The record is an 81-nucleotide RNA sequence from Gopherus evgoodei, which matches "mir-16 microRNA precursor family" in Rfam. Its Rfam clan is "mir-15 clan". Rfam links the family to the GO terms RISC complex and miRNA-mediated post-transcriptional gene silencing. The match comes from Rfam's covariance-model search (40 bits). A reference for the family is Jin et al. (2020), "Structural Basis for pri-miRNA Recognition by Drosha", Mol Cell. The organism belongs to Gopherus, within Eukaryota.
RNA sequence: UCCAGCUCUGAAGGCAGCACAGAAGUAAGGGUGGCAUGCUGUGAUAUUGCCACCCUUACUUCUGUGCUGCUGCUAGCAGGG
Numbered sequence: 001u002c003c004a005g006c007u008c009u010g011a012a013g014g015c016a017g018c019a020c021a022g023a024a025g026u027a028a029g030g031g032u033g034g035c036a037u038g039c040u041g042u043g044a045u046a047u048u049g050c051c052a053c054c055c056u057u058a059c060u061u062c063u064g065u066g067c068u069g070c071u072g073c074u075a076g077c078a079g080g081g
Base pairs, nucleotide, nucleotide: 001081002080003079005077006076007075012074013071014070015069016068017067018066019065020064022061024060025059026058027057028056029055030054031053